[Rfam]
RNA sequence: CUCCCACCCAUGUGUGUAGGACCUUAAAAGAUCACCAUUAAAUUUGACACAAAUAUUUAGAAAAGUUAUUACAUAGGUGUGGGACUUGACUUUUCUAAAUAUCAAUGUCAAAUUUAAUGGUGAUCCUUUGAAGUCCUACACACAUGGGUGAGGA
Numbered sequence: 001c002u003c004c005c006a007c008c009c010a011u012g013u014g015u016g017u018a019g020g021a022c023c024u025u026a027a028a029a030g031a032u033c034a035c036c037a038u039u040a041a042a043u044u045u046g047a048c049a050c051a052a053a054u055a056u057u058u059a060g061a062a063a064a065g066u067u068a069u070u071a072c073a074u075a076g077g078u079g080u081g082g083g084a085c086u087u088g089a090c091u092u093u094u095c096u097a098a099a100u101a102u103c104a105a106u107g108u109c110a111a112a113u114u115u116a117a118u119g120g121u122g123a124u125c126c127u128u129u130g131a132a133g134u135c136c137u138a139c140a141c142a143c144a145u146g147g148g149u150g151a152g153g154a
Stems, first nucleotide, its partner, number of pairs: 002153002005150009015140008024131005030125003034121016053102016069082005
Shown here is a 154-nucleotide RNA from Amborella trichopoda, a member of the family "MIR8565 microRNA precursor family". Taxonomically the source falls in Amborella (Eukaryota, Streptophyta, Amborellales, Amborellaceae).